[Rfam]
RNA sequence: GUGGUCUUUAAAUCAGUCCCGUGAGGCUGGUAAGAUGUUAGGAGUACGUGGAAAUAUUAUAUCUAUAUGAAGGUGCGUCUAUAACUUCUUACCAGCAGGGUAAGAAGUUUUUUUAU
Numbered sequence: 001g002u003g004g005u006c007u008u009u010a011a012a013u014c015a016g017u018c019c020c021g022u023g024a025g026g027c028u029g030g031u032a033a034g035a036u037g038u039u040a041g042g043a044g045u046a047c048g049u050g051g052a053a054a055u056a057u058u059a060u061a062u063c064u065a066u067a068u069g070a071a072g073g074u075g076c077g078u079c080u081a082u083a084a085c086u087u088c089u090u091a092c093c094a095g096c097a098g099g100g101u102a103a104g105a106a107g108u109u110u111u112u113u114u115a116u
Base pairs, nucleotide, nucleotide: 004036005035006034007033008032013030014029015028016027017026018025048078049077050076052074055071058069059068060067061066081111083109084108085107086106087105088104089103090102091101092100093099

Rfam assigns this 116-nucleotide sequence from Thermobrachium celere to the family "PyrR binding site". Rfam links the family to the GO terms pyrimidine nucleobase biosynthetic process and pyrimidine nucleobase transport. The organism belongs to Thermobrachium celere, within Bacteria. It scores 56 bits against the family's covariance model. This family represents the PyrR binding site and terminator structure.